[Rfam]
The family of this 330-nucleotide sequence from Betacoronavirus muris is "Betacoronavirus 3'UTR". The base pairs follow the family's consensus structure.
RNA sequence: CUAGACGAUGGCGUUGUGCCUGAUGGGUUGGAUGACUCUAAUGUGUAAAGAGAAUGAAUCCUAUGUCGGCGCUCGGUGGUAACCCCUCGCGAGAAAGUCGGGAUAGGACACUCUCUAUCAGAAUGGAUGUCUUGCUGUCAUAACAGAUAGAGAAGGUUGUGGCAGACCCUGUAUCAAUUAGUUGAAAGAGAUUGCAAAAUAGAGAAUGUGUGAGAGAAGUUGCAAGGUCCUACGUCUAACCAUAGAACGGCGAUAGGCGCCCCCUGGGAAGAGCUCACAUCAGGGUACUAUUCCUGCAAUGCCCUAGUAAAUGAAUGAAGUUGAUCAUGG
Numbered sequence: 001c002u003a004g005a006c007g008a009u010g011g012c013g014u015u016g017u018g019c020c021u022g023a024u025g026g027g028u029u030g031g032a033u034g035a036c037u038c039u040a041a042u043g044u045g046u047a048a049a050g051a052g053a054a055u056g057a058a059u060c061c062u063a064u065g066u067c068g069g070c071g072c073u074c075g076g077u078g079g080u081a082a083c084c085c086c087u088c089g090c091g092a093g094a095a096a097g098u099c100g101g102g103a104u105a106g107g108a109c110a111c112u113c114u115c116u117a118u119c120a121g122a123a124u125g126g127a128u129g130u131c132u133u134g135c136u137g138u139c140a141u142a143a144c145a146g147a148u149a150g151a152g153a154a155g156g157u158u159g160u161g162g163c164a165g166a167c168c169c170u171g172u173a174u175c176a177a178u179u180a181g182u183u184g185a186a187a188g189a190g191a192u193u194g195c196a197a198a199a200u201a202g203a204g205a206a207u208g209u210g211u212g213a214g215a216g217a218a219g220u221u222g223c224a225a226g227g228u229c230c231u232a233c234g235u236c237u238a239a240c241c242a243u244a245g246a247a248c249g250g251c252g253a254u255a256g257g258c259g260c261c262c263c264c265u266g267g268g269a270a271g272a273g274c275u276c277a278c279a280u281c282a283g284g285g286u287a288c289u290a291u292u293c294c295u296g297c298a299a300u301g302c303c304c305u306a307g308u309a310a311a312u313g314a315a316u317g318a319a320g321u322u323g324a325u326c327a328u329g330g
Stems, first nucleotide, its partner, number of pairs: 049116005055110002059108006066101004072093004078087002135165010173325007182310003187305002191300003208280007229257004233252003260268003
Dot-bracket structure: ................................................(((((.((..((((((.((((..((((..((......))..))))....)))).)))))))).)))))..................((((((((((...........)))))))))).......(((((((..(((..((..(((..............(((((((..............(((((((..............))).))))..(((...))).....))))))).................)))...))..)))........))))))).....
Annotation
A reference for the family is Goebel et al. (2004), "The 3' cis-acting genomic replication element of the severe acute respiratory syndrome coronavirus can function in the murine coronavirus genome", J Virol. NCBI's taxonomy places the organism under Viruses, Orthornavirae, Cornidovirineae, Murine coronavirus, Rat coronavirus. Rfam links the family to the GO term viral RNA genome replication. Rfam's curators put it in the seed alignment.